[Rfam]
This 132-nucleotide RNA sequence from Gopherus evgoodei belongs to the Rfam family "Small nucleolar RNA SNORA43".
RNA sequence: GGUUCCUUCCCCUAGUUGUGCAAAGUGGCUACUGUGUCAUCUUUGUUCAUUGGGUGGAAGAGAGCAAGGGGCUAUGUCUACACUCUGUUCUGAAACCCAUGAGCACUCAGAAUGGUUAAUAGCCUGACAUUG
Numbered sequence: 001g002g003u004u005c006c007u008u009c010c011c012c013u014a015g016u017u018g019u020g021c022a023a024a025g026u027g028g029c030u031a032c033u034g035u036g037u038c039a040u041c042u043u044u045g046u047u048c049a050u051u052g053g054g055u056g057g058a059a060g061a062g063a064g065c066a067a068g069g070g071g072c073u074a075u076g077u078c079u080a081c082a083c084u085c086u087g088u089u090c091u092g093a094a095a096c097c098c099a100u101g102a103g104c105a106c107u108c109a110g111a112a113u114g115g116u117u118a119a120u121a122g123c124c125u126g127a128c129a130u131u132g
Base pairs, nucleotide, nucleotide: 003059004058005057006056008054009053010052020046021045022044023043070124071123072122078115079114080113083110084109086105087104088103089102090101
The match comes from Rfam's covariance-model search (83 bits). The base pairs follow the family's consensus structure, which was predicted with RNAfold. Taxonomically the source falls in Gopherus (Eukaryota, Gnathostomata, Amniota, Archelosauria). From the family's description: ACA43 is a member of the H/ACA class of snoRNA that guide the sites of modification of uridines to pseudouridines.